[Rfam]
RNA sequence: CAACCACUUCGUUAGGUGAGGCUCCUGUAUGGAGAUAUGCUGCUGCCCAAAAACGUCCAAAGACGCCAAUGGGUCAACAGAAAUCAUCGACAUAAGGUGAUUUUUAAUGUAGCUGGCAAUGUCCUAUGCCAUACAGUGCUAAAGCUCUACGAAUGAAGGGAAUC
Numbered sequence: 001c002a003a004c005c006a007c008u009u010c011g012u013u014a015g016g017u018g019a020g021g022c023u024c025c026u027g028u029a030u031g032g033a034g035a036u037a038u039g040c041u042g043c044u045g046c047c048c049a050a051a052a053a054c055g056u057c058c059a060a061a062g063a064c065g066c067c068a069a070u071g072g073g074u075c076a077a078c079a080g081a082a083a084u085c086a087u088c089g090a091c092a093u094a095a096g097g098u099g100a101u102u103u104u105u106a107a108u109g110u111a112g113c114u115g116g117c118a119a120u121g122u123c124c125u126a127u128g129c130c131a132u133a134c135a136g137u138g139c140u141a142a143a144g145c146u147c148u149a150c151g152a153a154u155g156a157a158g159g160g161a162a163u164c
Stems, first nucleotide, its partner, number of pairs: 005160001007158004011150002013095001015146003020140003025136008039113005045074005054065004080104004086098003115124002